[Rfam]
RNA: FMN riboswitch aptamer (RFN element)
RNA sequence: AGAUUCCUUCGGGGCAGGGUGAAAUUCCCAACCGGCGGUGAUGGAGCGCAACGCUCCUUAGUCCGUGACCCGCAAGCUUACAGCGAGCGGUGGAUUCAGUGAAACUCUGAAGCCGACAGUAUAGUCUGGAUGGGAGAAGGAUCAC
Numbered sequence: 001a002g003a004u005u006c007c008u009u010c011g012g013g014g015c016a017g018g019g020u021g022a023a024a025u026u027c028c029c030a031a032c033c034g035g036c037g038g039u040g041a042u043g044g045a046g047c048g049c050a051a052c053g054c055u056c057c058u059u060a061g062u063c064c065g066u067g068a069c070c071c072g073c074a075a076g077c078u079u080a081c082a083g084c085g086a087g088c089g090g091u092g093g094a095u096u097c098a099g100u101g102a103a104a105c106u107c108u109g110a111a112g113c114c115g116a117c118a119g120u121a122u123a124g125u126c127u128g129g130a131u132g133g134g135a136g137a138a139g140g141a142u143c144a145c
Stems, first nucleotide, its partner, number of pairs: 005141006017029003031125002033115002035066004061113002070090002095111005117128003